A member of the RNA family "Glycine riboswitch aptamer" from Devosia epidermidihirudinis, 89 nucleotides long. Taxonomically the source falls in Devosia (Bacteria, Pseudomonadati, Pseudomonadota, Hyphomicrobiales).

[Rfam]
RNA sequence: GCCCUCACUGCGGGAGAGAUUGGAUUUUCUCCAGCGCCGAAGGAGCAACCGCCCCGGAAACUCUCAGGCAAAAGGACCGCAGUACCGAU
Dot-bracket structure: ......(((((((......((((.......)))).(((((..(((...((.....))...))))).))).......)))))))......
Numbered sequence: 001g002c003c004c005u006c007a008c009u010g011c012g013g014g015a016g017a018g019a020u021u022g023g024a025u026u027u028u029c030u031c032c033a034g035c036g037c038c039g040a041a042g043g044a045g046c047a048a049c050c051g052c053c054c055c056g057g058a059a060a061c062u063c064u065c066a067g068g069c070a071a072a073a074g075g076a077c078c079g080c081a082g083u084a085c086c087g088a089u
Stems, first nucleotide, its partner, number of pairs: 007083007020034004036069003039065002043063003049057002

Pairs were carried over by alignment from the consensus structure.
It scores 68 bits against the family's covariance model.